Shown here is an 84-nucleotide sequence from Aeribacillus pallidus, a member of the family "Group II catalytic intron D1-D4-1". Rfam links the family to the GO term Group II intron splicing. Group II introns are found in rRNA, tRNA and mRNA of organelles in fungi, plants and protists, and also in mRNA in bacteria. A search with the family's covariance model found it, with a score of 54 bits. Lineage of the source: Bacteria > Bacillota > Bacilli > Bacillaceae > Aeribacillus.
[Rfam]
RNA sequence: GGAGCGGUGCCUGUCACGCCCCAACAGUCAGAAGUCAGCAGAGGUCAUAGUACUCUUUCAAGCUCGAGAUGGAAGAGGAAGGAC
Numbered sequence: 001g002g003a004g005c006g007g008u009g010c011c012u013g014u015c016a017c018g019c020c021c022c023a024a025c026a027g028u029c030a031g032a033a034g035u036c037a038g039c040a041g042a043g044g045u046c047a048u049a050g051u052a053c054u055c056u057u058u059c060a061a062g063c064u065c066g067a068g069a070u071g072g073a074a075g076a077g078g079a080a081g082g083a084c
Stems, first nucleotide, its partner, number of pairs: 001022002004019003009014001035042002044084003053077008